RNA sequence: CAGCAUCCAAUUCUUCGACUCGCUGGCCUUCGGUUCGUCCAUGGCCAGACGAGCGGUAGCAGUCCGGUAAAUCCCAAACCGCCGGAUGUGCUCAAGGGUGCUGCCGGAAACAGCAGUGCCUCCCGUGUUAGGAAAGGAGAAGAGAUGAAAAAGU
Numbered sequence: 001c002a003g004c005a006u007c008c009a010a011u012u013c014u015u016c017g018a019c020u021c022g023c024u025g026g027c028c029u030u031c032g033g034u035u036c037g038u039c040c041a042u043g044g045c046c047a048g049a050c051g052a053g054c055g056g057u058a059g060c061a062g063u064c065c066g067g068u069a070a071a072u073c074c075c076a077a078a079c080c081g082c083c084g085g086a087u088g089u090g091c092u093c094a095a096g097g098g099u100g101c102u103g104c105c106g107g108a109a110a111c112a113g114c115a116g117u118g119c120c121u122c123c124c125g126u127g128u129u130a131g132g133a134a135a136g137g138a139g140a141a142g143a144g145a146u147g148a149a150a151a152a153g154u
Stems, first nucleotide, its partner, number of pairs: 004147001006145001011141006019053004023048006032040002055093002096121009106111001122132002
This 154-nucleotide RNA sequence from Pelolinea submarina belongs to the Rfam family "Molybdenum/Tungsten riboswitch aptamer (Moco RNA motif)". Gene Ontology terms of the family: molybdenum ion binding, tungstate binding and regulation of gene expression. The base pairs follow the family's consensus structure, which is taken from published work.